The family of this 99-nucleotide RNA from Saccharopolyspora gloriosae is "TPP riboswitch aptamer (THI element)". The organism belongs to Saccharopolyspora, within Bacteria. Rfam describes the family as follows. Vitamin B(1) in its active form thiamin pyrophosphate (TPP) is an essential coenzyme that is synthesised by coupling of pyrimidine and thiazole moieties in bacteria.

Nucleotides: 099
Stems, first nucleotide, its partner, number of pairs: 006087005011049004016043001017035007055080003061074004
Number, partner (000 for none) and nucleotide at each position: 001000g002000g003000c004000a005000g006087u007086g008085a009084c010083g011049c012048g013047g014046g015000g016043u017035g018034c019033c020032c021031g022030g023029c024000g025000a026000g027000c028000g029023g030022c031021c032020g033019g034018g035017c036000u037000g038000a039000g040000a041000g042000c043016a044000g045000a046014c047013c048012c049011g050000u051000c052000g053000a054000a055080c056079c057078u058000g059000a060000c061074c062073u063072a064071g065000u066000u067000c068000g069000u070000g071064c072063u073062a074061g075000c076000g077000g078057a079056g080055g081000g082000a083010c084009g085008u086007c087006a088000c089000c090000c091000a092000c093000g094000u095000g096000a097000c098000c099000g